[Rfam]
RNA: eL15-Euryarchaeota ribosomal protein leader
RNA sequence: ACGGACCUGUAGAGUCCGUAGGGAUGUGGCUUUAAUAAGCUGAACCGUAAA
Numbered sequence: 001a002c003g004g005a006c007c008u009g010u011a012g013a014g015u016c017c018g019u020a021g022g023g024a025u026g027u028g029g030c031u032u033u034a035a036u037a038a039g040c041u042g043a044a045c046c047g048u049a050a051a
Stems, first nucleotide, its partner, number of pairs: 001019005021046002028041005